The record is a 114-nucleotide RNA from an Akkermansiaceae bacterium, which matches "TPP riboswitch aptamer (THI element)" in Rfam. The family's consensus secondary structure is taken from published work. A search with the family's covariance model found it, with a score of 62 bits.
RNA sequence: CGCUAAUGACAGGGGAGCUUUCCGAUCGGGAAGCCGAGAUUUUCCGACGCGCGGGAAAAACCCUUCGAACCUGAAGCGGAUCAUGCCGCCGGAGGGAGUCGGAUAGGCGUGCUG
Numbered sequence: 001c002g003c004u005a006a007u008g009a010c011a012g013g014g015g016a017g018c019u020u021u022c023c024g025a026u027c028g029g030g031a032a033g034c035c036g037a038g039a040u041u042u043u044c045c046g047a048c049g050c051g052c053g054g055g056a057a058a059a060a061c062c063c064u065u066c067g068a069a070c071c072u073g074a075a076g077c078g079g080a081u082c083a084u085g086c087c088g089c090c091g092g093a094g095g096g097a098g099u100c101g102g103a104u105a106g107g108c109g110u111g112c113u114g
Base pairs, nucleotide, nucleotide: 007101008100009099010098011064012063013062014061017034018033019032020031021030041057042056043055044054045053070095071094072093076089077088078087079086